[Rfam]
RNA sequence: AACGCUAUACUUUGAAGGAUCAUUCCUAUGGUGUUUUAUUUGAUGUGUUUGUAGAGUGUAUGGUCUUGCAAACCAACAUGGUUUGCUAUGAUAUUUCCAUUGAAGUAUGAAGCUGACAAACAGUCAUGAUUCUGUCAUGUGUUUUUUGUCAUUCAUGAUUGUUCUGUGCUUCUUUACAGAAUUGAAGUGAGUAUGAUCUGAGUCGU
Numbered sequence: 001a002a003c004g005c006u007a008u009a010c011u012u013u014g015a016a017g018g019a020u021c022a023u024u025c026c027u028a029u030g031g032u033g034u035u036u037u038a039u040u041u042g043a044u045g046u047g048u049u050u051g052u053a054g055a056g057u058g059u060a061u062g063g064u065c066u067u068g069c070a071a072a073c074c075a076a077c078a079u080g081g082u083u084u085g086c087u088a089u090g091a092u093a094u095u096u097c098c099a100u101u102g103a104a105g106u107a108u109g110a111a112g113c114u115g116a117c118a119a120a121c122a123g124u125c126a127u128g129a130u131u132c133u134g135u136c137a138u139g140u141g142u143u144u145u146u147u148g149u150c151a152u153u154c155a156u157g158a159u160u161g162u163u164c165u166g167u168g169c170u171u172c173u174u175u176a177c178a179g180a181a182u183u184g185a186a187g188u189g190a191g192u193a194u195g196a197u198c199u200g201a202g203u204c205g206u
Base pairs, nucleotide, nucleotide: 001041002040007034008033009032010031011030016027017026018025019024050062051061052060053059074205076203077202091194092193093192094191095190096189098187100185101184102183105162106161107160115150116149117148118147122143123142124141125139126138127137128136129135163180164179165178166177167176168175
RNA: Small nucleolar RNA U3
Organism: Pundamilia nyererei